[Rfam]
RNA sequence: UGCAGAGUAGACGCUACAGCGUUAAGUGCCAGAUAGACAGGGAGUUGCUAUUUGGACGAAGGGUUUUGACCCGCGGUUCUAGUGUCGCAUCCCGCUGCU
Numbered sequence: 001u002g003c004a005g006a007g008u009a010g011a012c013g014c015u016a017c018a019g020c021g022u023u024a025a026g027u028g029c030c031a032g033a034u035a036g037a038c039a040g041g042g043a044g045u046u047g048c049u050a051u052u053u054g055g056a057c058g059a060a061g062g063g064u065u066u067u068g069a070c071c072c073g074c075g076g077u078u079c080u081a082g083u084g085u086c087g088c089a090u091c092c093c094g095c096u097g098c099u
Base pairs, nucleotide, nucleotide: 002098003097004096005095010086011085012084013083014082015081016080018078019077020075021074022073026057027056029055030054031053032052033051034050035049036048040092041091042090044088061072062071063070064069

Rfam assigns this 99-nucleotide RNA from Butyrivibrio proteoclasticus to the family "THF (Tetrahydrofolate) riboswitch aptamer". Gene Ontology term of the family: tetrahydrofolate metabolic process. Pairs were carried over by alignment from the consensus structure, which is taken from published work.